RNA sequence: CCCGCACACUCACCCGUGCCCGGCAGGAGCGGGGGACCCACAGGCAACAACGCCUGUUCCGGUCUCCGGAACAGGCUAGGGGUCAAGUCGCGCGCAAGCGCGGCCGGGCAUCUCCAGCUCGCACCCGACAGCUCACCUCGCAGGCAUCGGAGAGGAAUGCA
Numbered sequence: 001c002c003c004g005c006a007c008a009c010u011c012a013c014c015c016g017u018g019c020c021c022g023g024c025a026g027g028a029g030c031g032g033g034g035g036a037c038c039c040a041c042a043g044g045c046a047a048c049a050a051c052g053c054c055u056g057u058u059c060c061g062g063u064c065u066c067c068g069g070a071a072c073a074g075g076c077u078a079g080g081g082g083u084c085a086a087g088u089c090g091c092g093c094g095c096a097a098g099c100g101c102g103g104c105c106g107g108g109c110a111u112c113u114c115c116a117g118c119u120c121g122c123a124c125c126c127g128a129c130a131g132c133u134c135a136c137c138u139c140g141c142a143g144g145c146a147u148c149g150g151a152g153a154g155g156a157a158u159g160c161a
Stems, first nucleotide, its partner, number of pairs: 013144002019027002029141006039079001080126003088103004106120004
Rfam assigns this 161-nucleotide RNA sequence from Streptomyces avermitilis to the family "c-di-AMP riboswitch aptamer (ydaO/yuaA leader)". The source organism's lineage runs through Bacteria, Actinomycetota, Kitasatosporales, Streptomycetaceae and Streptomyces avermitilis. It is one of the family's seed sequences. Rfam links the family to the GO terms cyclic-di-AMP binding and regulation of gene expression.